A member of the RNA family "MIR480 microRNA precursor family" from Populus trichocarpa, 134 nucleotides long. Its family is annotated with RISC complex and miRNA-mediated post-transcriptional gene silencing in the Gene Ontology. The literature on the family includes a 2005 paper in Plant Cell by Lu et al., "Novel and mechanical stress-responsive MicroRNAs in Populus trichocarpa that are absent from Arabidopsis". The family's consensus secondary structure was predicted with WAR. The source organism's lineage runs through Eukaryota, eudicotyledons, Pentapetalae, rosids and Populus.
RNA sequence: UAGUCCAUAAAUAAUAUACCUCAUUUAAUUAUGGCAGACUCACACCUAACUAUUUAAAAUCACCUAUUAUCACAGAUCCAACUACAUCAUUAACAUUGAAAAACAUAGGAUCACUACUGUGUGAAUAUUGGUGA
Numbered sequence: 001u002a003g004u005c006c007a008u009a010a011a012u013a014a015u016a017u018a019c020c021u022c023a024u025u026u027a028a029u030u031a032u033g034g035c036a037g038a039c040u041c042a043c044a045c046c047u048a049a050c051u052a053u054u055u056a057a058a059a060u061c062a063c064c065u066a067u068u069a070u071c072a073c074a075g076a077u078c079c080a081a082c083u084a085c086a087u088c089a090u091u092a093a094c095a096u097u098g099a100a101a102a103a104c105a106u107a108g109g110a111u112c113a114c115u116a117c118u119g120u121g122u123g124a125a126u127a128u129u130g131g132u133g134a
Stems, first nucleotide, its partner, number of pairs: 005131003008127002012123001014122001017119002024116001026113001028111003